[Rfam]
Source information
Shown here is a 145-nucleotide sequence from Paenibacillus foliorum, a member of the family "c-di-AMP riboswitch aptamer (ydaO/yuaA leader)". Gene Ontology terms of the family: regulation of gene expression and cyclic-di-AMP binding. The organism belongs to Paenibacillus, within Bacteria.
RNA sequence: CACUUUAGCACGCUGAGUUUUCUUUUUAGAAAAACGGGGGAACCAAAUCUAUUGGGGUGAAUCAACGUAUAUCUUCUACGUUGUAGGGCGAAUUCUCACCGCCCAAAUCCGACAGCUAACCUCGUAAGCGGAAGUGGGAAGGAUA
Numbered sequence: 001c002a003c004u005u006u007a008g009c010a011c012g013c014u015g016a017g018u019u020u021u022c023u024u025u026u027u028a029g030a031a032a033a034a035c036g037g038g039g040g041a042a043c044c045a046a047a048u049c050u051a052u053u054g055g056g057g058u059g060a061a062u063c064a065a066c067g068u069a070u071a072u073c074u075u076c077u078a079c080g081u082u083g084u085a086g087g088g089c090g091a092a093u094u095c096u097c098a099c100c101g102c103c104c105a106a107a108u109c110c111g112a113c114a115g116c117u118a119a120c121c122u123c124g125u126a127a128g129c130g131g132a133a134g135u136g137g138g139a140a141g142g143a144u145a
Base pairs, nucleotide, nucleotide: 011130012129013128014127018033019032020031021030022029023028034125035124036123037122038121039120044054045053055110056109057108063083064082065081066080067079068078086104087103088102089101